[Rfam]
Nucleotides: 062
Stems, first nucleotide, its partner, number of pairs: 004056007012048007026032002
Number, partner (000 for none) and nucleotide at each position: 001000u002000u003000a004056a005055u006054u007053a008052g009051u010050a011000c012048a013047g014046c015045c016044u017043g018042u019000a020000u021000u022000a023000g024000u025000a026032a027031u028000g029000u030000c031027a032026u033000a034000u035000a036000u037000u038000c039000u040000u041000u042018a043017c044016a045015g046014g047013c048012u049000a050010u051009g052008c053007u054006a055005a056004u057000c058000u059000a060000u061000g062000c

mir-2187 microRNA precursor family: a 62-nucleotide RNA from Etheostoma spectabile.
The base pairs follow the family's consensus structure, which was predicted with RNAalifold.
Taxonomically the source falls in Oligocephalus (Eukaryota, Clupeocephala, Euacanthomorphacea, Percoidei).
It scores 69 bits against the family's covariance model.